[Rfam]
RNA sequence: UCACAAGUUCAAGGCCACAGCAGAAGUGCUUAUGACAUGGCCCUGAGGGAUUCCAAGUAAUCCUUGAAUUCCGCU
Numbered sequence: 001u002c003a004c005a006a007g008u009u010c011a012a013g014g015c016c017a018c019a020g021c022a023g024a025a026g027u028g029c030u031u032a033u034g035a036c037a038u039g040g041c042c043c044u045g046a047g048g049g050a051u052u053c054c055a056a057g058u059a060a061u062c063c064u065u066g067a068a069u070u071c072c073g074c075u
Stems, first nucleotide, its partner, number of pairs: 013042004019075003023071003026038003047064006
The family of this 75-nucleotide RNA sequence from Alligator sinensis is "Mammalian CPEB3 ribozyme". On this family, see Teixeira et al., Nature 2004: "Autocatalytic RNA cleavage in the human beta-globin pre-mRNA promotes transcription termination". The family's consensus secondary structure is taken from published work.